A member of the RNA family "T-box leader" from Lentibacillus halodurans, 214 nucleotides long. Taxonomically the source falls in Lentibacillus (Bacteria, Bacillota, Bacilli, Caryophanales). Gene Ontology term of the family: tRNA binding. A reference for the family is Winkler et al. (2001), "The GA motif: an RNA element common to bacterial antitermination systems, rRNA, and eukaryotic RNAs", RNA. The match comes from Rfam's covariance-model search (126 bits). Pairs were carried over by alignment from the consensus structure, which is taken from published work.
RNA sequence: UGAACGACUAUGAAAAGGAUCAGUAGUAAACUCACUCAGGUAAAGCGAGGCAGUGGCCGGUGAAAACUGUCCCUGAAAGUUUGUGAACUCGCCUUUAAGUUGCAGAGAUGAAUUUGCGUAGUCUUUGCCGUCAAAUCCGCGUUAAGGAAACAAGUGAGCACAUAUUGUCGUGUUAAUUUGGGUGGUACCGCGGGAGAAGCUUCUCGUCCCUCAU
Numbered sequence: 001u002g003a004a005c006g007a008c009u010a011u012g013a014a015a016a017g018g019a020u021c022a023g024u025a026g027u028a029a030a031c032u033c034a035c036u037c038a039g040g041u042a043a044a045g046c047g048a049g050g051c052a053g054u055g056g057c058c059g060g061u062g063a064a065a066a067c068u069g070u071c072c073c074u075g076a077a078a079g080u081u082u083g084u085g086a087a088c089u090c091g092c093c094u095u096u097a098a099g100u101u102g103c104a105g106a107g108a109u110g111a112a113u114u115u116g117c118g119u120a121g122u123c124u125u126u127g128c129c130g131u132c133a134a135a136u137c138c139g140c141g142u143u144a145a146g147g148a149a150a151c152a153a154g155u156g157a158g159c160a161c162a163u164a165u166u167g168u169c170g171u172g173u174u175a176a177u178u179u180g181g182g183u184g185g186u187a188c189c190g191c192g193g194g195a196g197a198a199g200c201u202u203c204u205c206g207u208c209c210c211u212c213a214u
Stems, first nucleotide, its partner, number of pairs: 007100002015095004026084006038074003049071006103127007129141003157174005180210003190207005